[Rfam]
RNA sequence: CUGUGGUGCAUUGUAGUUGCAUUGCAUGAUCCUCAGCCCGGUGCAAUGUGCCUUCAGUGCAGUACAG
Numbered sequence: 001c002u003g004u005g006g007u008g009c010a011u012u013g014u015a016g017u018u019g020c021a022u023u024g025c026a027u028g029a030u031c032c033u034c035a036g037c038c039c040g041g042u043g044c045a046a047u048g049u050g051c052c053u054u055c056a057g058u059g060c061a062g063u064a065c066a067g
Base pairs, nucleotide, nucleotide: 001067002066003065004064006063007061008060009059010058011057012056013055015053016052019049021047022046023045024044025043026042027041